[Rfam]
Nucleotides: 165
Stems, first nucleotide, its partner, number of pairs: 006160006016076006023068002032060006039053001080107012108134007116127001118125001
Number, partner (000 for none) and nucleotide at each position: 001000u002000a003000c004000u005000a006160c007159u008158a009157u010156a011155g012000a013000g014000g015000a016076g017075c018074u019073u020072u021071u022000a023068g024067c025000a026000a027000u028000a029000g030000u031000a032060a033059u034058u035057a036056a037055c038000c039053u040000a041000g042000u043000g044000g045000g046000c047000a048000u049000g050000c051000a052000g053039a054000a055037g056036u057035u058034a059033a060032u061000g062000a063000a064000a065000g066000g067024g068023u069000a070000u071021a072020a073019a074018a075017g076016c077000c078000g079000a080107a081106a082105c083104u084103a085102a086101g087100a088099u089098a090097a091096u092000g093000g094000c095000a096091g097090u098089u099088a100087u101086u102085u103084u104083g105082g106081u107080u108134g109133g110132u111131a112130g113129a114128a115000a116127a117000a118125c119000a120000u121000a122000a123000a124000a125118g126000a127116u128114u129113u130112c131111u132110a133109c134108u135000c136000u137000u138000u139000g140000g141000a142000u143000u144000u145000u146000c147000c148000a149000u150000u151000g152000g153000u154000g155011c156010u157009a158008u159007a160006g161000a162000u163000u164000u165000a